RNA sequence: UUACAGGACGCUUUUGUUAUUGAACUGUUUUGUCACUCUCUGUCAAAGAACAAAUUGUUCUCUGUCAGAGAGUGACAAAACAGUUCAUAAGCUAAAGCGUCCAGC
Numbered sequence: 001u002u003a004c005a006g007g008a009c010g011c012u013u014u015u016g017u018u019a020u021u022g023a024a025c026u027g028u029u030u031u032g033u034c035a036c037u038c039u040c041u042g043u044c045a046a047a048g049a050a051c052a053a054a055u056u057g058u059u060c061u062c063u064g065u066c067a068g069a070g071a072g073u074g075a076c077a078a079a080a081c082a083g084u085u086c087a088u089a090a091g092c093u094a095a096a097g098c099g100u101c102c103a104g105c
Stems, first nucleotide, its partner, number of pairs: 004104001006102001011097004016092003021087008029069004034064002049059004
RNA: mir-8517 microRNA precursor family
Organism: Plutella xylostella